[Rfam]
mir-9261 microRNA precursor family: a 150-nucleotide sequence from Pipistrellus kuhlii. It scores 87 bits against the family's covariance model. The family has 3 seed sequences and 196 matches in Rfam 15.1.

RNA sequence: AACAAUUUGUCCCGCGUCCCAGGGCGUUUUAAAAAAAAGUCCCGAUUUUGGAAAAGUCCCGAUUUUUGGAAAGCUUCGAUUUUAGGAAAGGUUCUUUCCAAAAAUCGGGACUUUUUUUAAAACGCCCUGGGACGCGGGACAAAUUGUUAA
Numbered sequence: 001a002a003c004a005a006u007u008u009g010u011c012c013c014g015c016g017u018c019c020c021a022g023g024g025c026g027u028u029u030u031a032a033a034a035a036a037a038a039g040u041c042c043c044g045a046u047u048u049u050g051g052a053a054a055a056g057u058c059c060c061g062a063u064u065u066u067u068g069g070a071a072a073g074c075u076u077c078g079a080u081u082u083u084a085g086g087a088a089a090g091g092u093u094c095u096u097u098c099c100a101a102a103a104a105u106c107g108g109g110a111c112u113u114u115u116u117u118u119a120a121a122a123c124g125c126c127c128u129g130g131g132a133c134g135c136g137g138g139a140c141a142a143a144u145u146g147u148u149a150a
Base pairs, nucleotide, nucleotide: 001148002147003146004145005144006143007142008141009140010139011138012137013136014135015134016133017132018131019130020129021128022127023126024125025124026123027122028121029120030119031118032117033116034115035114036113037112